[Rfam]
Annotation
This 298-nucleotide RNA sequence from Spodoptera litura belongs to the Rfam family "Nuclear RNase P". Clan: RNaseP clan. NCBI's taxonomy places the organism under Eukaryota, Eumetazoa, Mandibulata, Aparaglossata, Spodoptera. The base pairs follow the family's consensus structure, which is taken from published work. It is annotated as a ribozyme. Its family is annotated with ribonuclease P complex, ribonuclease P activity and tRNA processing in the Gene Ontology.
RNA sequence: GUUGGAAGAUCCCCAUUUCCGAUCUUAUUACUUAAAUCGACGACUUCGGUUACUCAAUACGUCUCGGGAAGGUCUGAGUAAAGGUCAAGUGCACUUUGGGCAUUUAACCCUUCAGCUAGGGGUACAGCUUAUAGCGGUAGCGGGGUUACCAGAAAGACGGGCUUGGAAGCUUUGUUGAGGACUCCACUCGGACGAGACUUGGCUCUUUUUGCCCUUUGAAGUCCCUGUGACCAGCUGUUUUAGUUCAAUCUGUGACAUAGCACUGCUAUAACUUAAUUCAGACUAGUCUUUAGUUGGC
Numbered sequence: 001g002u003u004g005g006a007a008g009a010u011c012c013c014c015a016u017u018u019c020c021g022a023u024c025u026u027a028u029u030a031c032u033u034a035a036a037u038c039g040a041c042g043a044c045u046u047c048g049g050u051u052a053c054u055c056a057a058u059a060c061g062u063c064u065c066g067g068g069a070a071g072g073u074c075u076g077a078g079u080a081a082a083g084g085u086c087a088a089g090u091g092c093a094c095u096u097u098g099g100g101c102a103u104u105u106a107a108c109c110c111u112u113c114a115g116c117u118a119g120g121g122g123u124a125c126a127g128c129u130u131a132u133a134g135c136g137g138u139a140g141c142g143g144g145g146u147u148a149c150c151a152g153a154a155a156g157a158c159g160g161g162c163u164u165g166g167a168a169g170c171u172u173u174g175u176u177g178a179g180g181a182c183u184c185c186a187c188u189c190g191g192a193c194g195a196g197a198c199u200u201g202g203c204u205c206u207u208u209u210u211g212c213c214c215u216u217u218g219a220a221g222u223c224c225c226u227g228u229g230a231c232c233a234g235c236u237g238u239u240u241u242a243g244u245u246c247a248a249u250c251u252g253u254g255a256c257a258u259a260g261c262a263c264u265g266c267u268a269u270a271a272c273u274u275a276a277u278u279c280a281g282a283c284u285a286g287u288c289u290u291u292a293g294u295u296g297g298c
Base pairs, nucleotide, nucleotide: 001295004291005290006289010255011254013252021063022062023061035051036050037049038048039047040046074281075280076279077278078277083232084231085230086229108122109121110120111119112118123139124138125137127135128134140228141227142226143225144224145223159214160213161212257269258268259267260266261265
Dot-bracket structure: (..(((...[[.[.......(((...........((((((.....)))))).........)))..........(((((....((((.....................(((((.....)))))(((.((.....)).)))((((((.............(((..................................................)))........))))))))))...................].]].(((((...))))).......))))).......)))...)...